[Rfam]
Nucleotides: 136
Stems, first nucleotide, its partner, number of pairs: 001136008013042005021031003025112004043104004048100002050096004108128001113125003
Number, partner (000 for none) and nucleotide at each position: 001136c002135u003134c004133u005132u006131a007130u008129c009000c010000a011000g012000a013042g014041a015040g016039g017038c018000g019000g020000a021031g022030g023029g024000a025112c026111c027110g028109g029023c030022c031021c032000u033000a034000c035000g036000a037000a038017g039016c040015c041014u042013c043104g044103g045102c046101a047000a048100c049099c050096u051095c052094c053093c054000c055000u056000a057000u058000g059000u060000g061000a062000a063000c064000c065000a066000c067000a068000g069000c070000a071000g072000c073000a074000g075000u076000g077000c078000g079000g080000u081000g082000c083000g084000g085000a086000a087000c088000g089000u090000a091000g092000c093053g094052g095051g096050a097000a098000c099049g100048g101046u102045g103044c104043c105000a106000a107000a108128u109028c110027c111026g112025g113125c114124a115123g116000c117000g118000c119000a120000a121000g122000a123115c124114u125113g126000g127000a128108a129008g130007a131006u132005g133004g134003g135002a136001g

This 136-nucleotide RNA from Chloroflexia bacterium SDU3-3 belongs to the Rfam family "SAM riboswitch aptamer (S box leader)". The base pairs follow the family's consensus structure, which is taken from published work.